[Rfam]
RNA sequence: CUGUAUAAAGGGCAAACUUGCCGAAAGUCAAGGACGCAAAGCCGAGGGUCUAAGGUACCAGAGCAUUAUGAUAGUCUGGCUGCCAUA
Number, nucleotide and partner (000 for none) at each position: 001c000002u000003g000004u000005a000006u000007a000008a000009a000010g000011g000012g037013c036014a000015a000016a000017c032018u031019u030020g029021c000022c027023g000024a000025a000026a000027g022028u000029c020030a019031a018032g017033g000034a000035c000036g013037c012038a000039a000040a081041g080042c079043c078044g000045a077046g076047g075048g072049u071050c070051u000052a000053a000054g000055g066056u065057a000058c063059c000060a000061g000062a000063g058064c000065a056066u055067u000068a000069u000070g050071a049072u048073a000074g000075u047076c046077u045078g043079g042080c041081u040082g000083c000084c000085a000086u000087a000

A member of the RNA family "c-di-GMP-I riboswitch aptamer" from Clostridium tetanomorphum, 87 nucleotides long. Taxonomically the source falls in Clostridium (Bacteria, Bacillati, Eubacteriales, Clostridiaceae).